[Rfam]
RNA: c-di-AMP riboswitch aptamer (ydaO/yuaA leader)
Organism: Streptomyces sp. DSM 40868
RNA sequence: GUAACCCAUUCACGAACUCAUUCGUACGGCAGGAGCGGGGGACCCAGGUAAGUCGCCGCGCCGGACGGCAUCCGCCGCGCCGGAACGGCUUGGGGUGAAGCCGUGCCUCCUCCCGGGCACGGCCGGGCGCCUCCCCGCCCGAACCCGACAGCUCACCUCGCAGGCGCCGGAGAGGAACCUU
Numbered sequence: 001g002u003a004a005c006c007c008a009u010u011c012a013c014g015a016a017c018u019c020a021u022u023c024g025u026a027c028g029g030c031a032g033g034a035g036c037g038g039g040g041g042a043c044c045c046a047g048g049u050a051a052g053u054c055g056c057c058g059c060g061c062c063g064g065a066c067g068g069c070a071u072c073c074g075c076c077g078c079g080c081c082g083g084a085a086c087g088g089c090u091u092g093g094g095g096u097g098a099a100g101c102c103g104u105g106c107c108u109c110c111u112c113c114c115g116g117g118c119a120c121g122g123c124c125g126g127g128c129g130c131c132u133c134c135c136c137g138c139c140c141g142a143a144c145c146c147g148a149c150a151g152c153u154c155a156c157c158u159c160g161c162a163g164g165c166g167c168c169g170g171a172g173a174g175g176a177a178c179c180u181u
Base pairs, nucleotide, nucleotide: 005033006032035161036160037159038158039157040156045092046091047090048089049088093146094145095144101122102121103120104119105118106117107116125140126139127138128137